[Rfam]
RNA: Group II catalytic intron D1-D4-3
RNA sequence: GAGUGCAAACGUGUGAGGCGACGAACAGAAACCGCAUAUAAGGCCAAGCCUGCGGGGCGAGUUGGCACAGGACGACAAAGCCCAUCGGUUUAGUAGGCAUGGUAAAUGCGGCGCUUGUAUACCGAAACAUCGCGUC
Numbered sequence: 001g002a003g004u005g006c007a008a009a010c011g012u013g014u015g016a017g018g019c020g021a022c023g024a025a026c027a028g029a030a031a032c033c034g035c036a037u038a039u040a041a042g043g044c045c046a047a048g049c050c051u052g053c054g055g056g057g058c059g060a061g062u063u064g065g066c067a068c069a070g071g072a073c074g075a076c077a078a079a080g081c082c083c084a085u086c087g088g089u090u091u092a093g094u095a096g097g098c099a100u101g102g103u104a105a106a107u108g109c110g111g112c113g114c115u116u117g118u119a120u121a122c123c124g125a126a127a128c129a130u131c132g133c134g135u136c
Stems, first nucleotide, its partner, number of pairs: 004129002011122005016116005032111006043103003048098006055083004061076004